SAM riboswitch aptamer (S box leader): a 98-nucleotide RNA sequence from Megasphaera cerevisiae. It scores 86 bits against the family's covariance model. Rfam describes the family as follows. The SAM riboswitch is found upstream of a number of genes which code for proteins involved in methionine or cysteine biosynthesis in Gram-positive bacteria. Its family is annotated with regulation of gene expression in the Gene Ontology. The base pairs follow the family's consensus structure, which is taken from published work. The source organism's lineage runs through Bacteria, Negativicutes, Veillonellales, Megasphaera and Megasphaera cerevisiae.
[Rfam]
RNA sequence: UUUUCAUCCAGAGCAGCUGAGGGACUGGCCCCAUGACGCUGCGGCAACCUACAUCAAGAAAGGUGCCAAUUCCAGCGGAUAUAUCCGGCAGAUGAAAC
Numbered sequence: 001u002u003u004u005c006a007u008c009c010a011g012a013g014c015a016g017c018u019g020a021g022g023g024a025c026u027g028g029c030c031c032c033a034u035g036a037c038g039c040u041g042c043g044g045c046a047a048c049c050u051a052c053a054u055c056a057a058g059a060a061a062g063g064u065g066c067c068a069a070u071u072c073c074a075g076c077g078g079a080u081a082u083a084u085c086c087g088g089c090a091g092a093u094g095a096a097a098c
Base pairs, nucleotide, nucleotide: 002097003096004095005094006093007092008091013042014041015040016039017038021031022030023029025075026074027073028072043067044066045065046064048063049062050059052058071090076087077086078085079084